The family of this 59-nucleotide sequence is "msiK RNA". The base pairs follow the family's consensus structure, which is taken from published work. The sequence is in the family's curated seed alignment.

RNA sequence: AAAUCGUUUCCAUUCACUACGGAUCGUCCGGCACGUACCUGCCGGUGAAGGAGAAAACA
Numbered sequence: 001a002a003a004u005c006g007u008u009u010c011c012a013u014u015c016a017c018u019a020c021g022g023a024u025c026g027u028c029c030g031g032c033a034c035g036u037a038c039c040u041g042c043c044g045g046u047g048a049a050g051g052a053g054a055a056a057a058c059a
Base pairs, nucleotide, nucleotide: 010051011050013049014048015047016046028045029044030043031042032041033040